A member of the RNA family "L17-Actino-Proteobacteria ribosomal protein leader" from Streptomyces vietnamensis, 57 nucleotides long. It is annotated as a cis-regulatory leader. Rfam's curators put it in the seed alignment. A reference for the family is Eckert and Weinberg (2020), "Discovery of 20 novel ribosomal leader candidates in bacteria and archaea", BMC Microbiol.
RNA sequence: CCGACGGGUGACCGCCCGCUCGGACACUGACAUCGGUACCUCACACGGCCGGUGCAG
Number, nucleotide and partner (000 for none) at each position: 001c023002c022003g021004a020005c018006g017007g016008g015009u000010g000011a000012c000013c000014g000015c008016c007017c006018g005019c000020u004021c003022g002023g001024a000025c000026a000027c057028u056029g055030a000031c054032a053033u052034c051035g050036g049037u048038a000039c000040c000041u000042c000043a000044c000045a000046c000047g000048g037049c036050c035051g034052g033053u032054g031055c029056a028057g027